RNA sequence: GUCCCAGUAGCUCAGUGGUUAGAGCAUCCGACUAGAAUACGGAAGGUCGUAGGUUCGAAUCCCAUCUGGAGCU
Numbered sequence: 001g002u003c004c005c006a007g008u009a010g011c012u013c014a015g016u017g018g019u020u021a022g023a024g025c026a027u028c029c030g031a032c033u034a035g036a037a038u039a040c041g042g043a044a045g046g047u048c049g050u051a052g053g054u055u056c057g058a059a060u061c062c063c064a065u066c067u068g069g070a071g072c073u
Base pairs, nucleotide, nucleotide: 001072002071004069005068006067007066010025011024012023013022027043028042029041030040049065050064052062053061